[Rfam]
RNA sequence: AUGCACCAUGCGUACACCACGGUUCCUCCGCGCCGUCCACGCCAACCGGACGACGGCUCGCGACGUUUCUUCGCU
Number, nucleotide and partner (000 for none) at each position: 001a000002u016003g015004c000005a013006c012007c000008a000009u000010g000011c000012g006013u005014a000015c003016a002017c000018c000019a000020c035021g034022g033023u032024u000025c030026c000027u000028c000029c000030g025031c000032g023033c022034c021035g020036u000037c000038c000039a000040c000041g000042c000043c000044a000045a000046c000047c073048g072049g071050a070051c000052g069053a068054c000055g000056g000057c000058u000059c000060g000061c000062g000063a000064c000065g000066u000067u000068u053069c052070u050071u049072c048073g047074c000075u000